[Rfam]
RNA sequence: GUAUGAAAUGAUGGUAUACCAUCUUUCGGGACUGACGUGUCAUGGAGAUGCUUUUGAACUUCACUGAUCAUAU
Numbered sequence: 001g002u003a004u005g006a007a008a009u010g011a012u013g014g015u016a017u018a019c020c021a022u023c024u025u026u027c028g029g030g031a032c033u034g035a036c037g038u039g040u041c042a043u044g045g046a047g048a049u050g051c052u053u054u055u056g057a058a059c060u061u062c063a064c065u066g067a068u069c070a071u072a073u
Base pairs, nucleotide, nucleotide: 001073002072003071004070005069006068